This 78-nucleotide RNA sequence from Scaptodrosophila lebanonensis belongs to the Rfam family "mir-957 microRNA precursor family". A search with the family's covariance model found it, with a score of 91 bits. The source organism's lineage runs through Eukaryota, Opisthokonta, Diptera, Schizophora and Scaptodrosophila.
RNA sequence: UGGGUCUUAGUUUUUGACGUGUUUUGGUGUGCUGUGGAGUUUUUGUUCCGAUUGAAACCGUCCAAAACUGAGGCCAAC
Numbered sequence: 001u002g003g004g005u006c007u008u009a010g011u012u013u014u015u016g017a018c019g020u021g022u023u024u025u026g027g028u029g030u031g032c033u034g035u036g037g038a039g040u041u042u043u044u045g046u047u048c049c050g051a052u053u054g055a056a057a058c059c060g061u062c063c064a065a066a067a068c069u070g071a072g073g074c075c076a077a078c
Stems, first nucleotide, its partner, number of pairs: 005073001007071008016062004021058008